[Rfam]
This 53-nucleotide sequence from Malus baccata belongs to the Rfam family "Plastid-atpF group II-D1 intron".
RNA sequence: UGCCAUUUUUUCGAAAUAAAACACUCAUGUCGAUAAAAUGAUUUAAAUCCGUU
Numbered sequence: 001u002g003c004c005a006u007u008u009u010u011u012c013g014a015a016a017u018a019a020a021a022c023a024c025u026c027a028u029g030u031c032g033a034u035a036a037a038a039u040g041a042u043u044u045a046a047a048u049c050c051g052u053u
Stems, first nucleotide, its partner, number of pairs: 011033004016028002
For this family Rfam cites "Retrograde signaling in plants: A critical review focusing on the GUN pathway and beyond" (Richter et al., Plant Commun, 2023).
Rfam's curators write: Plastid atpF is a non-coding RNA (ncRNA) recognised in plastids. It has been reported in the intron group II-D1 region of ATP synthase (atpF) genes.
It scores 59 bits against the family's covariance model.